[Rfam]
RNA: U12 minor spliceosomal RNA
RNA sequence: AUGCCUUAAAGGGAUGAGUAAGGGAAAUAACAUUGUGGGGUGACGCCCACAUUCUCGUGAUGACUUCCGAGAUGAAUUUUUGGACGGGUACAGGUCUGUCUGCUGAGGUGACUUGCUUACUCUGCAAGAUGUUUCGCAGAGUGAGGAUCUACCCU
Numbered sequence: 001a002u003g004c005c006u007u008a009a010a011g012g013g014a015u016g017a018g019u020a021a022g023g024g025a026a027a028u029a030a031c032a033u034u035g036u037g038g039g040g041u042g043a044c045g046c047c048c049a050c051a052u053u054c055u056c057g058u059g060a061u062g063a064c065u066u067c068c069g070a071g072a073u074g075a076a077u078u079u080u081u082g083g084a085c086g087g088g089u090a091c092a093g094g095u096c097u098g099u100c101u102g103c104u105g106a107g108g109u110g111a112c113u114u115g116c117u118u119a120c121u122c123u124g125c126a127a128g129a130u131g132u133u134u135c136g137c138a139g140a141g142u143g144a145g146g147a148u149c150u151a152c153c154c155u
Base pairs, nucleotide, nucleotide: 004023005022006021007020008019032053034051035050036049037048038047039046054071055070056069057068086154087153088152089151092150093149094148095147096146097145101139107135108134112128113127114126115125116124